[Rfam]
RNA sequence: CAGCGUUCUCAGGGCGGGGUGUAAUUCCCCACCGGCGGUAUCUGCAGCCAGACCUAUGGUCCGGACUGCAGCAGCCCGCGAGCGCCUUUGGUCUCGUCAGAGUCCACAGGGUCAGCAGAUCUGGUGAGAUACCAGAGCCGACGGUCAUAGUCCGGAUGAAAGAGAUCGCGC
Numbered sequence: 001c002a003g004c005g006u007u008c009u010c011a012g013g014g015c016g017g018g019g020u021g022u023a024a025u026u027c028c029c030c031a032c033c034g035g036c037g038g039u040a041u042c043u044g045c046a047g048c049c050a051g052a053c054c055u056a057u058g059g060u061c062c063g064g065a066c067u068g069c070a071g072c073a074g075c076c077c078g079c080g081a082g083c084g085c086c087u088u089u090g091g092u093c094u095c096g097u098c099a100g101a102g103u104c105c106a107c108a109g110g111g112u113c114a115g116c117a118g119a120u121c122u123g124g125u126g127a128g129a130u131a132c133c134a135g136a137g138c139c140g141a142c143g144g145u146c147a148u149a150g151u152c153c154g155g156a157u158g159a160a161a162g163a164g165a166u167c168g169c170g171c
Stems, first nucleotide, its partner, number of pairs: 003169003007165004017029003031151002033140002035079004074138002082116002120136005142154003